Shown here is a 127-nucleotide RNA sequence from Ricinus communis, a member of the family "Small nucleolar RNA snoR111".
The organism belongs to Ricinus, within Eukaryota.
[Rfam]
RNA sequence: AUGAAGGGACAGGAAUUAGGAAUGUCUCUUUGUCUGGAACAGAGGGAGGUAUAUCAAUUUCGGUAGGCCGAGAUAUCGUUUCAGUCGUCAUUCUUCCAUUGACGAUUCGAUUGUUGCUCGUCCACAU
Numbered sequence: 001a002u003g004a005a006g007g008g009a010c011a012g013g014a015a016u017u018a019g020g021a022a023u024g025u026c027u028c029u030u031u032g033u034c035u036g037g038a039a040c041a042g043a044g045g046g047a048g049g050u051a052u053a054u055c056a057a058u059u060u061c062g063g064u065a066g067g068c069c070g071a072g073a074u075a076u077c078g079u080u081u082c083a084g085u086c087g088u089c090a091u092u093c094u095u096c097c098a099u100u101g102a103c104g105a106u107u108c109g110a111u112u113g114u115u116g117c118u119c120g121u122c123c124a125c126a127u
Stems, first nucleotide, its partner, number of pairs: 004035001006033001008031001011027003014023001066123002069120004075111004084106007092098001
Dot-bracket structure: ...(.(.(..((((........).)))...).).)..............................((.((((..((((.....(((((((.(.....).))))))).)))).....)))).))....
Pairs were carried over by alignment from the consensus structure, which was predicted with WAR.
Rfam links the family to the GO terms nucleolus and RNA processing.